[Rfam]
Nucleotides: 083
Stems, first nucleotide, its partner, number of pairs: 012038002017033004022029002041077004048073002050069003056065003
Number, partner (000 for none) and nucleotide at each position: 001000a002000u003000c004000c005000g006000a007000u008000a009000a010000a011000g012038g013037c014000a015000a016000a017033c018032c019031u020030g021000a022029u023028u024000g025000a026000a027000a028023a029022a030020c031019a032018g033017g034000g035000a036000c037013g038012c039000a040000a041077a042076g043075c044074u045000a046000a047000a048073g049072g050069g051068u052067c053000u054000u055000u056065c057064c058063c059000g060000a061000g062000a063058g064057g065056g066000u067052g068051a069050c070000a071000g072049c073048c074044a075043g076042c077041u078000a079000u080000c081000g082000a083000a

Record summary
This 83-nucleotide sequence from Saccharibacillus sacchari belongs to the Rfam family "c-di-GMP-I riboswitch aptamer". Lineage of the source: Bacteria > Bacillati > Bacilli > Caryophanales > Saccharibacillus sacchari. Rfam links the family to the GO term cyclic-di-GMP binding.